[Rfam]
RNA sequence: AGUAUUUGAGGGCAGAACAGGGAGCUGCCACCAUAACAUUUUGUUAUUAGGAGAUGUAAGAUUCCCACCUUACCAAAUGCU
Number, nucleotide and partner (000 for none) at each position: 001a081002g080003u079004a078005u077006u076007u075008g074009a000010g000011g029012g028013c027014a026015g025016a000017a000018c000019a000020g066021g065022g064023a063024g000025c015026u014027g013028c012029c011030a000031c051032c000033a000034u000035a045036a044037c043038a042039u000040u000041u000042u038043g037044u036045u035046a000047u000048u000049a000050g000051g031052a000053g000054a000055u000056g073057u072058a071059a070060g069061a000062u000063u023064c022065c021066c020067a000068c000069c060070u059071u058072a057073c056074c008075a007076a006077a005078u004079g003080c002081u001
RNA: skipping-rope RNA
Organism: Culicoidibacter larvae